A member of the RNA family "Bacillus sRNA ncr1575" from Mangrovibacillus cuniculi, 193 nucleotides long. It is annotated as a small RNA. The source organism's lineage runs through Bacteria, Bacillati, Caryophanales, Bacillaceae and Mangrovibacillus.
[Rfam]
RNA sequence: AACUACAAUUUCGAAAGGACUGAUGGGUGAACGAUGAAGUACUAAUCUUAUUCUCACUAUUUGAAAAUAACUUCAAAUGACGAAAUUGGAUUAGUCUGCCCAUUUUUACUUAUACAGAAAUAGUUGUGCCCACGCACGGCUUAUUUCGUUACGGCUUGACUAAUCCUUCCAUUACUAAUGGGAGGAUUUUUUU
Numbered sequence: 001a002a003c004u005a006c007a008a009u010u011u012c013g014a015a016a017g018g019a020c021u022g023a024u025g026g027g028u029g030a031a032c033g034a035u036g037a038a039g040u041a042c043u044a045a046u047c048u049u050a051u052u053c054u055c056a057c058u059a060u061u062u063g064a065a066a067a068u069a070a071c072u073u074c075a076a077a078u079g080a081c082g083a084a085a086u087u088g089g090a091u092u093a094g095u096c097u098g099c100c101c102a103u104u105u106u107u108a109c110u111u112a113u114a115c116a117g118a119a120a121u122a123g124u125u126g127u128g129c130c131c132a133c134g135c136a137c138g139g140c141u142u143a144u145u146u147c148g149u150u151a152c153g154g155c156u157u158g159a160c161u162a163a164u165c166c167u168u169c170c171a172u173u174a175c176u177a178a179u180g181g182g183a184g185g186a187u188u189u190u191u192u193u
Stems, first nucleotide, its partner, number of pairs: 016107003024102004031095002043093006050086003054082001059078007116146002123140007162188011